[Rfam]
RNA: Small nucleolar RNA SNORD58
Organism: Odobenus rosmarus
RNA sequence: CUGCAGUGAUGUUUCUUAGGACACCUUUGGAUUUACCAUGAAAAUUAAUCAGUUCUGAGCGGU
Numbered sequence: 001c002u003g004c005a006g007u008g009a010u011g012u013u014u015c016u017u018a019g020g021a022c023a024c025c026u027u028u029g030g031a032u033u034u035a036c037c038a039u040g041a042a043a044a045u046u047a048a049u050c051a052g053u054u055c056u057g058a059g060c061g062g063u
Base pairs, nucleotide, nucleotide: 001062002061003060004059